[Rfam]
RNA sequence: GGGGGCUGGGGAAGGGCUGCCGGGUGGCAGGGCCGGCAGGCCCGGCCUCGUACCCGGCCAGCCUCACCCGCGCCCCAGAGCAAGCCCCCGGCGGGCCGUGCCGGGGGUCAUCCCGUGCAGUACCAGGUGUGAGCAUCCAUGCAGCCUCCUGAUGGUCAUGUAUGAUACUGCAUACAGCG
Dot-bracket structure: ..((((.(((....((((((((.(((((.(.(((....))).).)))....)).)))).))))...)))..))))...........(((((((.....)))).)))........((((((((.((....(((.((((...(......)..)))).)))....)).))))))))......
Numbered sequence: 001g002g003g004g005g006c007u008g009g010g011g012a013a014g015g016g017c018u019g020c021c022g023g024g025u026g027g028c029a030g031g032g033c034c035g036g037c038a039g040g041c042c043c044g045g046c047c048u049c050g051u052a053c054c055c056g057g058c059c060a061g062c063c064u065c066a067c068c069c070g071c072g073c074c075c076c077a078g079a080g081c082a083a084g085c086c087c088c089c090g091g092c093g094g095g096c097c098g099u100g101c102c103g104g105g106g107g108u109c110a111u112c113c114c115g116u117g118c119a120g121u122a123c124c125a126g127g128u129g130u131g132a133g134c135a136u137c138c139a140u141g142c143a144g145c146c147u148c149c150u151g152a153u154g155g156u157c158a159u160g161u162a163u164g165a166u167a168c169u170g171c172a173u174a175c176a177g178c179g
Stems, first nucleotide, its partner, number of pairs: 003075004008069003015063004019058004024053002026047003030043001032041003087106003090102004115173008124164002130158003134154004141148001
The family of this 179-nucleotide RNA sequence from Zapornia atra is "Small Cajal body specific RNA 16". scaRNAs are a specific class of small nuclear RNAs which localise to the Cajal bodies and guide the modification of RNA polymerase II transcribed spliceosomal RNAs U1, U2, U4, U5 and U12. It is annotated as a small Cajal body RNA. Rfam links the family to the GO terms nucleolus and RNA processing. Rfam 15.1 lists 790 matches to the family in 514 species. For this family Rfam cites "Cajal body-specific small nuclear RNAs: a novel class of 2'-O-methylation and pseudouridylation guide RNAs" (Darzacq et al., EMBO J, 2002). Lineage of the source: Eukaryota > Opisthokonta > Craniata > Tetrapoda > Zapornia.